[Rfam]
The family of this 141-nucleotide RNA sequence is "IMES-2 RNA motif".
RNA sequence: AGAUAACUUAAGAGGCAACUCUUAACUGGCCAUCUAGGGAAAAACCGAGAGGUUCAAGACUAGAGGGCAGAAAACUCUGCAAAGCAGCGCUAAACAUGCAGAGCGGCGGGUUCGGCGGUAGCGCAUACAACGACGAACCAA
Number, nucleotide and partner (000 for none) at each position: 001a000002g000003a000004u000005a000006a000007c000008u025009u024010a023011a022012g021013a020014g019015g000016c000017a000018a000019c014020u013021c012022u011023u010024a009025a008026c070027u069028g068029g000030c067031c066032a000033u064034c063035u062036a061037g060038g000039g000040a000041a000042a000043a054044a053045c052046c051047g000048a000049g000050a000051g046052g045053u044054u043055c000056a000057a000058g000059a000060c037061u036062a035063g034064a033065g000066g031067g030068c028069a027070g026071a000072a000073a000074a000075c103076u102077c101078u100079g099080c098081a097082a000083a000084g000085c000086a000087g124088c123089g122090c121091u120092a000093a000094a000095c000096a000097u081098g080099c079100a078101g077102a076103g075104c000105g000106g000107c000108g000109g139110g138111u137112u136113c135114g134115g000116c132117g131118g000119u000120a091121g090122c089123g088124c087125a000126u000127a000128c000129a000130a000131c117132g116133a000134c114135g113136a112137a111138c110139c109140a000141a000
The base pairs follow the family's consensus structure, which is taken from published work. On this family, see Weinberg et al., Nature 2009: "Exceptional structured noncoding RNAs revealed by bacterial metagenome analysis". By type it is a non-coding RNA gene.